[Rfam]
RNA: Vertebrate telomerase RNA
RNA sequence: ACAGGCCGUGCGGCCGACUAACCCUAAUGGCGGCUGCGUCCCUCACGGCCGCCCGCUGUUUUACUCGCUGACUUCCAGCGGGCGGAGGGAGCGGCCCAAGGAAAGGGGGGAUGCAAGGGUAGAGAGAACAGAUCCGGCCUCAGAAACGUCAGCGAGGGGGAUCCACACCCCGGCGCACCCUGGGGUCCCUGUCCCUCCUCCGCAACCGGGGAUGCUCCCGCCGUCGCCCCCCGUGGAGGCCGCGGUCGGCAGGCUCAGCGCCGCUACCGCCGCGAAGAGCUCGUCUCUGUCAGCCUCGGCGGCGGCCGGGACCGGAGCGCCGGCCCGCCCAGCUUGGGCGGCCGGGGGACCCCAGCAGAGCAAAAAGGGGCGCGACGCCGCCGAGGGCUGAGCAGCCGCGGCUCCCUCAGACGUGGGGUGCGCGGCCGGCGCCGCCCCGACACCC
Numbered sequence: 001a002c003a004g005g006c007c008g009u010g011c012g013g014c015c016g017a018c019u020a021a022c023c024c025u026a027a028u029g030g031c032g033g034c035u036g037c038g039u040c041c042c043u044c045a046c047g048g049c050c051g052c053c054c055g056c057u058g059u060u061u062u063a064c065u066c067g068c069u070g071a072c073u074u075c076c077a078g079c080g081g082g083c084g085g086a087g088g089g090a091g092c093g094g095c096c097c098a099a100g101g102a103a104a105g106g107g108g109g110g111a112u113g114c115a116a117g118g119g120u121a122g123a124g125a126g127a128a129c130a131g132a133u134c135c136g137g138c139c140u141c142a143g144a145a146a147c148g149u150c151a152g153c154g155a156g157g158g159g160g161a162u163c164c165a166c167a168c169c170c171c172g173g174c175g176c177a178c179c180c181u182g183g184g185g186u187c188c189c190u191g192u193c194c195c196u197c198c199u200c201c202g203c204a205a206c207c208g209g210g211g212a213u214g215c216u217c218c219c220g221c222c223g224u225c226g227c228c229c230c231c232c233g234u235g236g237a238g239g240c241c242g243c244g245g246u247c248g249g250c251a252g253g254c255u256c257a258g259c260g261c262c263g264c265u266a267c268c269g270c271c272g273c274g275a276a277g278a279g280c281u282c283g284u285c286u287c288u289g290u291c292a293g294c295c296u297c298g299g300c301g302g303c304g305g306c307c308g309g310g311a312c313c314g315g316a317g318c319g320c321c322g323g324c325c326c327g328c329c330c331a332g333c334u335u336g337g338g339c340g341g342c343c344g345g346g347g348g349a350c351c352c353c354a355g356c357a358g359a360g361c362a363a364a365a366a367g368g369g370g371c372g373c374g375a376c377g378c379c380g381c382c383g384a385g386g387g388c389u390g391a392g393c394a395g396c397c398g399c400g401g402c403u404c405c406c407u408c409a410g411a412c413g414u415g416g417g418g419u420g421c422g423c424g425g426c427c428g429g430c431g432c433c434g435c436c437c438c439g440a441c442a443c444c445c
Stems, first nucleotide, its partner, number of pairs: 002173001004171002008168003012164002014158002040089005050084009067153006073146002180355007214318002216311005222305001225301004241274005247269003252262003276288004368437004374433001376431004396425005403418004